[Rfam]
RNA sequence: UAGAGGAGGCACCCAUGCGUUGAAAACGCAUAUAAAAAUGGUGCCGACGAAAUGCCGCCUAGUGUAAGCGAGGGGGCGAUACGAUUU
Dot-bracket structure: .......((((((.((((((.....))))))........))))))........(((.((..((....))..)).)))..........
The record is an 87-nucleotide RNA, which matches "GA-cis RNA" in Rfam. Rfam classes the family as a small RNA.